[Rfam]
RNA sequence: AUUAGGAUGAUGCAGAAACUCGGACCAAUGUCCAUUGAUUUUUCUCAAAGAUGAUGCUAUAACCAGCUACUUUUGACUAGU
Number, nucleotide and partner (000 for none) at each position: 001a081002u080003u079004a078005g077006g000007a000008u000009g000010a000011u000012g000013c000014a000015g000016a000017a000018a000019c000020u000021c000022g000023g000024a000025c000026c000027a000028a000029u000030g000031u000032c000033c000034a000035u000036u000037g000038a000039u000040u000041u000042u000043u000044c000045u000046c000047a000048a000049a000050g000051a000052u000053g000054a000055u000056g000057c000058u000059a000060u000061a000062a000063c000064c000065a000066g000067c000068u000069a000070c000071u000072u000073u000074u000075g000076a000077c005078u004079a003080g002081u001
Rfam assigns this 81-nucleotide RNA sequence from Brachypodium distachyon to the family "Small nucleolar RNA R12". By type it is a C/D-box small nucleolar RNA. Rfam links the family to the GO terms RNA processing and nucleolus.